[Rfam]
RNA: Bacterial RNase P class A
RNA sequence: GGAGUCGGCCAGACAGUCGCUGGCGCGCAAGCGCUGGAGGAAAGUCCGGACUUCACAGGGCAGAGUGCGAGAUAACGUCUCGACGGUGCGAGCCGAUGGAAAGUGCAACAGAAAGCAAACCGCCGAUGUCACCGCAAGGUGGCAGGUAAGGGUGAAACGGUGCGGUAAGAGCGCACCGCGUCGCUGGCAACAGUCGACGGCACGGCAAACCCCACUCGAAGCAAGACCAAAUAGGCACUCAUUGGCGUGGCCCGCGCUGAGUGCGGGUAGGUUGCUUGAGCCGUAAGGUGACUUACGGCCCAGAUGAAUGACUGUCCCCGACAGAAUCCGGCUUAUCGGCCGACUCCGACC
Numbered sequence: 001g002g003a004g005u006c007g008g009c010c011a012g013a014c015a016g017u018c019g020c021u022g023g024c025g026c027g028c029a030a031g032c033g034c035u036g037g038a039g040g041a042a043a044g045u046c047c048g049g050a051c052u053u054c055a056c057a058g059g060g061c062a063g064a065g066u067g068c069g070a071g072a073u074a075a076c077g078u079c080u081c082g083a084c085g086g087u088g089c090g091a092g093c094c095g096a097u098g099g100a101a102a103g104u105g106c107a108a109c110a111g112a113a114a115g116c117a118a119a120c121c122g123c124c125g126a127u128g129u130c131a132c133c134g135c136a137a138g139g140u141g142g143c144a145g146g147u148a149a150g151g152g153u154g155a156a157a158c159g160g161u162g163c164g165g166u167a168a169g170a171g172c173g174c175a176c177c178g179c180g181u182c183g184c185u186g187g188c189a190a191c192a193g194u195c196g197a198c199g200g201c202a203c204g205g206c207a208a209a210c211c212c213c214a215c216u217c218g219a220a221g222c223a224a225g226a227c228c229a230a231a232u233a234g235g236c237a238c239u240c241a242u243u244g245g246c247g248u249g250g251c252c253c254g255c256g257c258u259g260a261g262u263g264c265g266g267g268u269a270g271g272u273u274g275c276u277u278g279a280g281c282c283g284u285a286a287g288g289u290g291a292c293u294u295a296c297g298g299c300c301c302a303g304a305u306g307a308a309u310g311a312c313u314g315u316c317c318c319c320g321a322c323a324g325a326a327u328c329c330g331g332c333u334u335a336u337c338g339g340c341c342g343a344c345u346c347c348g349a350c351c
Stems, first nucleotide, its partner, number of pairs: 001347010011336001012316007020037007042334003046331005051221004058253004063217005068082005083097001084095004098212002103210002105206002120151002122147003128143006159177006178201001179199005184193003225273004235264006244258005280299008